[Rfam]
RNA sequence: CUCGUCCGCCCCGUGGACGCCCUGAACAUCAGGGCCCGGCCCCCGCUACGCUUGCGGCGUGCACCGUCCCCGGACAGCUCCGCGCCGAGCGCGCGCAGCCGCCCGGGGAAGACGCAAAGCCGACAGCCGUCGCACCUAAGGGAGCCCCUUCAUG
Numbered sequence: 001c002u003c004g005u006c007c008g009c010c011c012c013g014u015g016g017a018c019g020c021c022c023u024g025a026a027c028a029u030c031a032g033g034g035c036c037c038g039g040c041c042c043c044c045g046c047u048a049c050g051c052u053u054g055c056g057g058c059g060u061g062c063a064c065c066g067u068c069c070c071c072g073g074a075c076a077g078c079u080c081c082g083c084g085c086c087g088a089g090c091g092c093g094c095g096c097a098g099c100c101g102c103c104c105g106g107g108g109a110a111g112a113c114g115c116a117a118a119g120c121c122g123a124c125a126g127c128c129g130u131c132g133c134a135c136c137u138a139a140g141g142g143a144g145c146c147c148c149u150u151c152a153u154g
Stems, first nucleotide, its partner, number of pairs: 060116003067109007119133002122131003
This 154-nucleotide sequence from Streptomyces sp. e14 belongs to the Rfam family "Streptomyces-metH RNA". The organism belongs to Streptomyces, within Bacteria.